Shown here is a 79-nucleotide RNA sequence from Brassica rapa, a member of the family "Small nucleolar RNA snoR14". It scores 61 bits against the family's covariance model. The literature on the family includes a 2001 paper in RNA by Brown et al., "Multiple snoRNA gene clusters from Arabidopsis". The family is grouped with related families in Rfam's "SNORD110 clan". The pairing is the family consensus, mapped onto this sequence. Rfam links the family to the GO terms nucleolus and RNA processing. By type it is a C/D-box small nucleolar RNA.
RNA sequence: UCGAGGUGACGAUAGAAAAUUCACUAGUCCCUGAAACAUUAUGUGAUGUUAUUGUGAUAUCUCGACAGGUUCUGAUCGA
Numbered sequence: 001u002c003g004a005g006g007u008g009a010c011g012a013u014a015g016a017a018a019a020u021u022c023a024c025u026a027g028u029c030c031c032u033g034a035a036a037c038a039u040u041a042u043g044u045g046a047u048g049u050u051a052u053u054g055u056g057a058u059a060u061c062u063c064g065a066c067a068g069g070u071u072c073u074g075a076u077c078g079a
Stems, first nucleotide, its partner, number of pairs: 001079004
Dot-bracket structure: ((((.......................................................................))))